[Rfam]
Shown here is a 77-nucleotide sequence from Pseudomonas fluvialis, a member of the family "Pseudomonas sRNA P31". The source organism's lineage runs through Bacteria, Pseudomonadota, Gammaproteobacteria, Pseudomonadaceae and Pseudomonas. It is annotated as a small RNA.

RNA sequence: AGAAGACCUCCGUCGAUCAAGGCUUGAAGCACACGCAGAUUGUAAAAAAGCGGGAUGACGUGUGAAGGUCAUCCCGC
Number, nucleotide and partner (000 for none) at each position: 001a000002g000003a000004a000005g041006a000007c000008c038009u037010c000011c000012g000013u000014c000015g000016a000017u000018c000019a000020a000021g030022g000023c000024u029025u000026g000027a000028a000029g024030c021031a000032c000033a000034c000035g000036c000037a009038g008039a000040u000041u005042g000043u000044a000045a000046a000047a000048a000049a000050g077051c076052g075053g074054g000055a000056u071057g070058a069059c068060g000061u000062g000063u000064g000065a000066a000067g000068g059069u058070c057071a056072u000073c000074c053075c052076g051077c050